[Rfam]
RNA: mir-27 microRNA precursor family
RNA sequence: CUGGGGAGCAGGGCUUAGCUGCUGGUGAACAGGGUGUCACCGAGUCUUGUUCACAGUGGCUAAGUUCCGCCCCCCUC
Numbered sequence: 001c002u003g004g005g006g007a008g009c010a011g012g013g014c015u016u017a018g019c020u021g022c023u024g025g026u027g028a029a030c031a032g033g034g035u036g037u038c039a040c041c042g043a044g045u046c047u048u049g050u051u052c053a054c055a056g057u058g059g060c061u062a063a064g065u066u067c068c069g070c071c072c073c074c075c076u077c
Stems, first nucleotide, its partner, number of pairs: 011067010025054007